The record is a 178-nucleotide RNA from Catonella morbi, which matches "Group II catalytic intron D1-D4-3" in Rfam.
RNA sequence: UCCGUCGUGAGGUGGAAUCUUAAGGAAGUCGGAUGGCAAAUCUCCGGUCUGACAAAUAGAAAUCAUAUCAGGCUAUAGCUAAGGAUAAGGUUGCUAAACAAACUGAAGUCCAAUAACCGGAUAAAAUAAUUAUUUAAAUUCUGCCUGAUUAUGCUUGACAGGGGAAAAGUUUAGUAGU
Numbered sequence: 001u002c003c004g005u006c007g008u009g010a011g012g013u014g015g016a017a018u019c020u021u022a023a024g025g026a027a028g029u030c031g032g033a034u035g036g037c038a039a040a041u042c043u044c045c046g047g048u049c050u051g052a053c054a055a056a057u058a059g060a061a062a063u064c065a066u067a068u069c070a071g072g073c074u075a076u077a078g079c080u081a082a083g084g085a086u087a088a089g090g091u092u093g094c095u096a097a098a099c100a101a102a103c104u105g106a107a108g109u110c111c112a113a114u115a116a117c118c119g120g121a122u123a124a125a126a127u128a129a130u131u132a133u134u135u136a137a138a139u140u141c142u143g144c145c146u147g148a149u150u151a152u153g154c155u156u157g158a159c160a161g162g163g164g165a166a167a168a169g170u171u172u173a174g175u176a177g178u
Stems, first nucleotide, its partner, number of pairs: 001016006028178002031175001036170002041164004046159001047149003051145001064143002067140001076132003080128002083111004089104004
Rfam describes the family as follows. Group II introns are found in rRNA, tRNA and mRNA of organelles in fungi, plants and protists, and also in mRNA in bacteria.
The source organism's lineage runs through Bacteria, Bacillati, Lachnospirales, Lachnospiraceae and Catonella morbi.
The match comes from Rfam's covariance-model search (77 bits).